Annotation:
Rfam assigns this 267-nucleotide sequence from Mesorhabditis belari to the family "Metazoan signal recognition particle RNA".
Nucleotides: 267
Stems, first nucleotide, its partner, number of pairs: 001044003004023007028041003045265008056252004060246006067239002073236006083228001085226005090218002094216005100209005106203003109148004114143006121136002124133003157199005167190003174183003
Number, partner (000 for none) and nucleotide at each position: 001044g002043c003042g004023g005022g006021g007020c008019g009018u010017c011000g012000u013000g014000g015000c016000g017010g018009g019008c020007g021006c022005u023004u024000g025000u026000u027000a028041g029040u030039c031000a032000g033000c034000u035000u036000c037000u038000u039030g040029a041028c042003c043002g044001c045265g046264g047263g048262u049261g050260u051259g052258g053000a054000g055000g056252a057251g058250g059249g060246g061245g062244a063243u064242u065241g066000a067239u068238c069000g070000g071000g072000a073236u074235c075234g076233g077232c078231c079000c080000c081000a082000g083228c084000c085226g086225a087224c088223g089222u090218c091217c092000g093000a094216a095215a096214c097213c098212a099000a100209g101208u102207g103206g104205c105000a106203c107202g108201u109148c110147g111146c112145u113000a114143g115142g116141g117140g118139c119138u120000u121136u122135u123000u124133c125132c126131c127000g128000g129000a130000a131126g132125g133124g134000c135122g136121g137000c138119a139118g140117u141116c142115u143114c144000g145112g146111g147110c148109g149000g150000a151000c152000a153000a154000g155000g156000a157199g158198g159197g160196a161195c162000a163000g164000a165000u166000g167190g168189c169188u170000c171000a172000g173000g174183c175182c176181c177000g178000a179000a180000a181176g182175g183174g184000a185000g186000c187000a188169g189168g190167c191000a192000a193000u194000a195161g196160u197159c198158c199157c200000c201108g202107c203106g204000c205104g206103u207102c208101a209100c210000a211000g212098u213097g214096g215095u216094u217091g218090g219000a220000u221000c222089g223088c224087g225086u226085c227000u228083g229000g230000a231078g232077g233076u234075c235074g236073g237000g238068g239067a240000a241065u242064g243063g244062u245061u246060c247000u248000a249059c250058c251057c252056u253000c254000g255000a256000a257000c258052c259051c260050a261049c262048a263047u264046u265045u266000u267000u
NCBI's taxonomy places the organism under Eukaryota, Eumetazoa, Ecdysozoa, Chromadorea, Mesorhabditis. Pairs were carried over by alignment from the consensus structure, which is taken from published work. The match comes from Rfam's covariance-model search (142 bits). About the family: The signal recognition particle (SRP) is a universally conserved ribonucleoprotein. On this family, see Rosenblad et al., Nucleic Acids Res 2003: "SRPDB: Signal Recognition Particle Database". Rfam classes the family as a non-coding RNA gene.